[Rfam]
RNA sequence: GGUGAUGUGGCAGAGCGGUUAUGCGUGAGCCUGCAAAGCUUAUCUAAAGGGGUUCGACUCCCCUCGUCACCU
Dot-bracket structure: (((((((..(((.........))).(((((.......))))).....(((((.......)))))))))))).
Numbered sequence: 001g002g003u004g005a006u007g008u009g010g011c012a013g014a015g016c017g018g019u020u021a022u023g024c025g026u027g028a029g030c031c032u033g034c035a036a037a038g039c040u041u042a043u044c045u046a047a048a049g050g051g052g053u054u055c056g057a058c059u060c061c062c063c064u065c066g067u068c069a070c071c072u
Stems, first nucleotide, its partner, number of pairs: 001071007010024003026042005048064005